A member of the RNA family "SAM riboswitch aptamer (S box leader)" from Kurthia sp. 11kri321, 118 nucleotides long.
[Rfam]
RNA sequence: CUCUUAUCCCGAGCUGGUGGAGGGUCAGGCCCUAUGAAACCCGGCAACCUGCAUUUCAUUUCACGAGAUGCGCUGGUGCUAAUCUGAAUGCAAGGAUUCAUUCCUUGAACGAUAAGAG
Numbered sequence: 001c002u003c004u005u006a007u008c009c010c011g012a013g014c015u016g017g018u019g020g021a022g023g024g025u026c027a028g029g030c031c032c033u034a035u036g037a038a039a040c041c042c043g044g045c046a047a048c049c050u051g052c053a054u055u056u057c058a059u060u061u062c063a064c065g066a067g068a069u070g071c072g073c074u075g076g077u078g079c080u081a082a083u084c085u086g087a088a089u090g091c092a093a094g095g096a097u098u099c100a101u102u103c104c105u106u107g108a109a110c111g112a113u114a115a116g117a118g
Stems, first nucleotide, its partner, number of pairs: 001118008013042001016041003022032003026090002043080004048076002050072008086110001091107006